The family of this 357-nucleotide RNA from Clostridium tetanomorphum is "Bacterial RNase P class A". The base pairs follow the family's consensus structure, which is taken from published work.
RNA sequence: CGAGUAAGCCAGACAGUCGCUGCUGCUUUAUGCAGGAGAGGAAAGUCGGAGCUCCAUAGGGCAGGGUGCUGGGUAACCCCCAGUCAGGGUGACCUGAAGGAAAGUGCAACAGAGAUAUACCGCCUAAGUUUAACUUAGGUAAGGGUGGAAAGGCGAGGUAAGAGCUCACCAGCGUAAUGGCGACUUUACGGCUAUGUAAACCCCACCUGGAGCAAGAUCGAAUAGGGGAGUAGGAAGAUUAACUUCCAGGGACGGCCCGUCCUGCUCCCGGGUAGUAUCGCUUGAGCUUAUUGGUAACAAUAGGCCUAGAUAGAUGACUGUUUAAUACAGAACUCCGCUUAUAGGUUUAGUCGCAUA
Numbered sequence: 001c002g003a004g005u006a007a008g009c010c011a012g013a014c015a016g017u018c019g020c021u022g023c024u025g026c027u028u029u030a031u032g033c034a035g036g037a038g039a040g041g042a043a044a045g046u047c048g049g050a051g052c053u054c055c056a057u058a059g060g061g062c063a064g065g066g067u068g069c070u071g072g073g074u075a076a077c078c079c080c081c082a083g084u085c086a087g088g089g090u091g092a093c094c095u096g097a098a099g100g101a102a103a104g105u106g107c108a109a110c111a112g113a114g115a116u117a118u119a120c121c122g123c124c125u126a127a128g129u130u131u132a133a134c135u136u137a138g139g140u141a142a143g144g145g146u147g148g149a150a151a152g153g154c155g156a157g158g159u160a161a162g163a164g165c166u167c168a169c170c171a172g173c174g175u176a177a178u179g180g181c182g183a184c185u186u187u188a189c190g191g192c193u194a195u196g197u198a199a200a201c202c203c204c205a206c207c208u209g210g211a212g213c214a215a216g217a218u219c220g221a222a223u224a225g226g227g228g229a230g231u232a233g234g235a236a237g238a239u240u241a242a243c244u245u246c247c248a249g250g251g252a253c254g255g256c257c258c259g260u261c262c263u264g265c266u267c268c269c270g271g272g273u274a275g276u277a278u279c280g281c282u283u284g285a286g287c288u289u290a291u292u293g294g295u296a297a298c299a300a301u302a303g304g305c306c307u308a309g310a311u312a313g314a315u316g317a318c319u320g321u322u323u324a325a326u327a328c329a330g331a332a333c334u335c336c337g338c339u340u341a342u343a344g345g346u347u348u349a350g351u352c353g354c355a356u357a
Base pairs, nucleotide, nucleotide: 001353002352003351005349006348007347008346009345010344011342012322013321014320015319016318017317018316020038021037023035024034025033026032043340044339045338047337048336049335050334051333052212053211054210055209059258060257061256062255064208065207066206067205068204069083070082071081072080073079084098085096086095087094088093099203100202104201105200106197107196108195120144121143122140123139124138125137126136127135128134129133152170153169155167156166157165172192173190174189175188176187177186179184216279217278218277219275226269227268228267229266230265231264249263250262251261252260253259286305287304288303289302290301291300292299293298

It scores 299 bits against the family's covariance model. The family's RNA type in Rfam is ribozyme.